Notes
This 135-nucleotide RNA sequence from Plantibacter sp. Leaf314 belongs to the Rfam family "mraW RNA". It is annotated as a cis-regulatory element. Taxonomically the source falls in Plantibacter (Bacteria, Bacillati, Actinomycetes, Micrococcales). A search with the family's covariance model found it, with a score of 53 bits.
RNA sequence: CUAGUGCCCUGCCCCCUGACUCCCAGCCGUCACGCCCUGACACACUUCCCCGGUGCCAGGUCGGAUCCCGCCCUGACACACUUCCCCGGUGCCAGGUCGGAACGGAUGGGGAUCAGGGGACAGGGACCGUCCGGA
Numbered sequence: 001c002u003a004g005u006g007c008c009c010u011g012c013c014c015c016c017u018g019a020c021u022c023c024c025a026g027c028c029g030u031c032a033c034g035c036c037c038u039g040a041c042a043c044a045c046u047u048c049c050c051c052g053g054u055g056c057c058a059g060g061u062c063g064g065a066u067c068c069c070g071c072c073c074u075g076a077c078a079c080a081c082u083u084c085c086c087c088g089g090u091g092c093c094a095g096g097u098c099g100g101a102a103c104g105g106a107u108g109g110g111g112a113u114c115a116g117g118g119g120a121c122a123g124g125g126a127c128c129g130u131c132c133g134g135a
Base pairs, nucleotide, nucleotide: 010122011121013119014118015117016116018114019113021111022110023109024108025107027105028104029103030102033099034098036096037095038094039093041091042090043089